[Rfam]
RNA sequence: GCUGCACACAAACCCAAAGAUCAUUGUUUAUGUAUAUAUAAUGCUCUUGCUAUGUGUGCACAAAGAAACAGGACCUUGUCGCCUUUCAUGAGCUCUUCUGUGUCAUUGGAAGUGAAUUCAAGGUUCAACAUCA
Numbered sequence: 001g002c003u004g005c006a007c008a009c010a011a012a013c014c015c016a017a018a019g020a021u022c023a024u025u026g027u028u029u030a031u032g033u034a035u036a037u038a039u040a041a042u043g044c045u046c047u048u049g050c051u052a053u054g055u056g057u058g059c060a061c062a063a064a065g066a067a068a069c070a071g072g073a074c075c076u077u078g079u080c081g082c083c084u085u086u087c088a089u090g091a092g093c094u095c096u097u098c099u100g101u102g103u104c105a106u107u108g109g110a111a112g113u114g115a116a117u118u119c120a121a122g123g124u125u126c127a128a129c130a131u132c133a
Base pairs, nucleotide, nucleotide: 003060004059005058006057007056008055009054019046020045022043023042024041025040026039027038071126072125073124074123075122076121077120083112084111085110086109087108088107092103093102
RNA: Small nucleolar RNA SNORA68